[Rfam]
RNA: U1 spliceosomal RNA
Organism: Castor canadensis
Nucleotides: 162
Stems, first nucleotide, its partner, number of pairs: 012122004016048006023042005049090004056083003060079005093116002095113003100108001138161006145154003
Number, partner (000 for none) and nucleotide at each position: 001000a002000u003000a004000c005000g006000u007000a008000u009000c010000u011000g012122g013121c014120a015119g016048g017047g018046g019045a020044g021043a022000u023042a024041c025040c026039a027038u028000g029000a030000u031000c032000a033000c034000g035000a036000a037000g038027g039026u040025g041024g042023u043021u044020u045019u046018c047017c048016c049090a050089g051088g052087g053000c054000a055000a056083g057082g058081c059000u060079u061078a062077u063076c064075c065000a066000u067000u068000g069000c070000a071000c072000u073000c074000u075064g076063g077062a078061u079060g080000u081058g082057c083056u084000g085000a086000c087052c088051c089050c090049u091000g092000c093116g094115a095113u096112u097111u098000c099000c100108c101000c102000a103000a104000a105000u106000g107000u108100g109000a110000g111097a112096a113095a114000c115094u116093c117000a118000a119015c120014u121013g122012c123000a124000u125000a126000a127000u128000u129000u130000g131000u132000g133000g134000u135000a136000g137000u138161g139160g140159g141158g142157g143156a144000c145154u146153g147152c148000a149000u150000u151000u152147g153146c154145a155000g156143u157142c158141u159140c160139c161138c162000c